[Rfam]
RNA sequence: GGGCUCGGCAUGGGGUGCUGCGCGUGGUGCGCGGCUGAGAUCAAACCCAUCGAACCUGUCUGGGUAAUGCCAGCGAAGGGAGCCGCGCAUGAGCGAA
Numbered sequence: 001g002g003g004c005u006c007g008g009c010a011u012g013g014g015g016u017g018c019u020g021c022g023c024g025u026g027g028u029g030c031g032c033g034g035c036u037g038a039g040a041u042c043a044a045a046c047c048c049a050u051c052g053a054a055c056c057u058g059u060c061u062g063g064g065u066a067a068u069g070c071c072a073g074c075g076a077a078g079g080g081a082g083c084c085g086c087g088c089a090u091g092a093g094c095g096a097a
Base pairs, nucleotide, nucleotide: 006085007084008083009082011049012048013047014046016043017035018034019033020032021031022030023029055079056078057077060073061072062071063070

Shown here is a 97-nucleotide sequence from Azospirillum sp. TSO22-1, a member of the family "TPP riboswitch aptamer (THI element)".
The source organism's lineage runs through Bacteria, Pseudomonadati, Rhodospirillales, Azospirillaceae and Azospirillum.